RNA sequence: GCAUAUUUCAGGUUUGUGCGUGAAUCUAAAGCUUUAUUUUCCCCCUCAUUUAUGGGGUUUUUGUGGGCCUUAGAUUCACGCACAAGCUCGUAAUCUUCCU
Numbered sequence: 001g002c003a004u005a006u007u008u009c010a011g012g013u014u015u016g017u018g019c020g021u022g023a024a025u026c027u028a029a030a031g032c033u034u035u036a037u038u039u040u041c042c043c044c045c046u047c048a049u050u051u052a053u054g055g056g057g058u059u060u061u062u063g064u065g066g067g068c069c070u071u072a073g074a075u076u077c078a079c080g081c082a083c084a085a086g087c088u089c090g091u092a093a094u095c096u097u098c099c100u
Base pairs, nucleotide, nucleotide: 001098003096005094006093007092011088012087013086014085015084016083017082018081019080020079021078022077023076024075025074026073028071029070032067033066043057045055
MIR403 microRNA precursor family: a 100-nucleotide RNA sequence from Trema andersonii.
A search with the family's covariance model found it, with a score of 77 bits.
The literature on the family includes a 2009 paper in BMC Genomics by Mica et al., "High throughput approaches reveal splicing of primary microRNA transcripts and tissue specific expression of mature microRNAs in Vitis vinifera".
Lineage of the source: Eukaryota > eudicotyledons > Gunneridae > Pentapetalae > Trema.